[Rfam]
RNA sequence: UACCGAUAAUGGCAAACCUGCCGAAAGACAGGGACGCAAAGCCAAGGGUCUAAGGUCCAAACGGACUAUGACAGCCGGUUGCCGAA
Numbered sequence: 001u002a003c004c005g006a007u008a009a010u011g012g013c014a015a016a017c018c019u020g021c022c023g024a025a026a027g028a029c030a031g032g033g034a035c036g037c038a039a040a041g042c043c044a045a046g047g048g049u050c051u052a053a054g055g056u057c058c059a060a061a062c063g064g065a066c067u068a069u070g071a072c073a074g075c076c077g078g079u080u081g082c083c084g085a086a
Stems, first nucleotide, its partner, number of pairs: 012037002017032004022027001040080004046076002048072003055066004

Rfam assigns this 86-nucleotide sequence from Papillibacter cinnamivorans to the family "c-di-GMP-I riboswitch aptamer". It scores 88 bits against the family's covariance model. GEMM was predicted in a large-scale screen for bacterial structured RNA regulatory elements. The family's consensus secondary structure is taken from published work. The source organism's lineage runs through Bacteria, Bacillota, Eubacteriales, Papillibacter and Papillibacter cinnamivorans.